The record is a 127-nucleotide RNA sequence from Peribacillus deserti, which matches "PyrR binding site" in Rfam. Taxonomically the source falls in Peribacillus (Bacteria, Bacillati, Bacilli, Bacillaceae). The family's consensus secondary structure is taken from published work. Rfam links the family to the GO terms pyrimidine nucleobase biosynthetic process and pyrimidine nucleobase transport.
[Rfam]
RNA sequence: ACUACCUUUUAAAUUCGGUCCAGAGAGGCUGAAAAGGGCUGCACGAUAUAAUGAUCUCUAGUUUUAUAUCUAUACGUAACUAGUCUUUUCAUGCCCUUUUGUCUCUCUGACGAAAGGGCAUUUAUUU
Numbered sequence: 001a002c003u004a005c006c007u008u009u010u011a012a013a014u015u016c017g018g019u020c021c022a023g024a025g026a027g028g029c030u031g032a033a034a035a036g037g038g039c040u041g042c043a044c045g046a047u048a049u050a051a052u053g054a055u056c057u058c059u060a061g062u063u064u065u066a067u068a069u070c071u072a073u074a075c076g077u078a079a080c081u082a083g084u085c086u087u088u089u090c091a092u093g094c095c096c097u098u099u100u101g102u103c104u105c106u107c108u109g110a111c112g113a114a115a116g117g118g119c120a121u122u123u124a125u126u127u
Stems, first nucleotide, its partner, number of pairs: 005037005015032006054087001058083006065076001067074001091121013